The record is an 80-nucleotide RNA sequence from Alicyclobacillaceae bacterium I2511, which matches "c-di-GMP-I-GGC riboswitch aptamer" in Rfam. Lineage of the source: Bacteria > Bacillota > Bacilli > Caryophanales > Alicyclobacillaceae. The match comes from Rfam's covariance-model search (59 bits).

[Rfam]
RNA sequence: UAUAUUAAAGGCAAACCAGCGGUGACGCUGGGACGCAAAGCCUCGGGUCUGUCUCCAGGCAGAUGGCCAGGUUGCUGCCA
Dot-bracket structure: (.((......((...((((((....))))))..[))..((((..(((((((........))))).])).))))..))..)